[Rfam]
RNA sequence: CCGAGGGUCCACUCCUGAGACUCUUGAUAGUAUCAAGUCGCCCACGUGGGAAACUACAGAUACCAGUUUAUAUUUAAACUGCCUUGCUCCCU
Dot-bracket structure: ..(((((((.........))))))).......(...((..(((....)))..))...).....(((((((....)))))))...........